[Rfam]
RNA sequence: GGGUGCGGGGCCGGGUUCGCCGCCGGCCGCCGCAGGCGGUGGGAUGAUCGGGCCGUCAUCC
Numbered sequence: 001g002g003g004u005g006c007g008g009g010g011c012c013g014g015g016u017u018c019g020c021c022g023c024c025g026g027c028c029g030c031c032g033c034a035g036g037c038g039g040u041g042g043g044a045u046g047a048u049c050g051g052g053c054c055g056u057c058a059u060c061c
Stems, first nucleotide, its partner, number of pairs: 005033004009028006042061007
Shown here is a 61-nucleotide RNA, a member of the family "nhaA-I RNA". The sequence is in the family's curated seed alignment. Acidobacteria, Alphaproteobacteria, Betaproteobacteria and Gammaproteobacteria, Verrucomicrobia, cand. division NC10. The family's RNA type in Rfam is riboswitch.